[Rfam]
Nucleotides: 123
Stems, first nucleotide, its partner, number of pairs: 011033002016029001018027003062116006075103002078096004
Number, partner (000 for none) and nucleotide at each position: 001000c002000a003000g004000c005000a006000u007000g008000u009000u010000u011033c012032c013000a014000a015000a016029g017000u018027c019026u020025g021000g022000g023000u024000g025020u026019a027018g028000c029016c030000a031000c032012g033011g034000g035000u036000u037000c038000u039000c040000c041000a042000a043000c044000u045000g046000c047000a048000u049000g050000u051000g052000a053000g054000a055000g056000c057000a058000a059000c060000c061000u062116g063115g064114a065113g066112a067111g068000a069000c070000u071000g072000a073000c074000a075103g076102c077000u078096c079095a080094g081093g082000u083000u084000a085000g086000c087000a088000u089000a090000a091000u092000a093081c094080c095079u096078g097000c098000a099000g100000c101000g102076g103075c104000c105000a106000c107000u108000u109000g110000c111067c112066u113065u114064u115063c116062c117000u118000a119000g120000a121000u122000a123000u